[Rfam]
RNA: U1 spliceosomal RNA
RNA sequence: AUAUAUACCGGACGGGGGCUACGGGUGAUCAUGAAGACCCGUGCCCUGGACCAACGGCUCGCAGCACUUGGCGAGUGUUGGUCUACCAUCUCCCCAAUGGGAGAGAGGAUGUCACAAAUUUUGGUAGAGGGGGUCCGGCAAAGGGGCCCCUG
Numbered sequence: 001a002u003a004u005a006u007a008c009c010g011g012a013c014g015g016g017g018g019c020u021a022c023g024g025g026u027g028a029u030c031a032u033g034a035a036g037a038c039c040c041g042u043g044c045c046c047u048g049g050a051c052c053a054a055c056g057g058c059u060c061g062c063a064g065c066a067c068u069u070g071g072c073g074a075g076u077g078u079u080g081g082u083c084u085a086c087c088a089u090c091u092c093c094c095c096a097a098u099g100g101g102a103g104a105g106a107g108g109a110u111g112u113c114a115c116a117a118a119u120u121u122u123g124g125u126a127g128a129g130g131g132g133g134u135c136c137g138g139c140a141a142a143g144g145g146g147c148c149c150c151u152g
Stems, first nucleotide, its partner, number of pairs: 011113004015047005022041005048084003052081001054078003058075005086108002089104003093100002129151006136144001